Rfam assigns this 102-nucleotide sequence from Haloplasma contractile to the family "Purine riboswitch aptamer". The source organism's lineage runs through Bacteria, Haloplasmatales, Haloplasmataceae, Haloplasma and Haloplasma contractile.
[Rfam]
Nucleotides: 102
Stems, first nucleotide, its partner, number of pairs: 018088003022084004031047004058078007
Number, partner (000 for none) and nucleotide at each position: 001000a002000u003000u004000g005000a006000a007000u008000a009000a010000u011000u012000g013000c014000a015000u016000u017000a018088a019087a020086g021000u022084c023083g024082u025081a026000u027000a028000a029000c030000g031047u032046c033045g034044g035000u036000a037000a038000u039000a040000u041000g042000g043000u044034c045033c046032g047031a048000a049000a050000g051000u052000c053000u054000c055000u056000a057000c058078c059077u060076a061075c062074c063073a064072a065000c066000c067000g068000u069000a070000a071000a072064u073063u074062g075061g076060u077059a078058g079000a080000c081025u082024a083023c084022g085000c086020u087019u088018u089000g090000u091000g092000u093000u094000u095000g096000u097000a098000u099000a100000a101000a102000u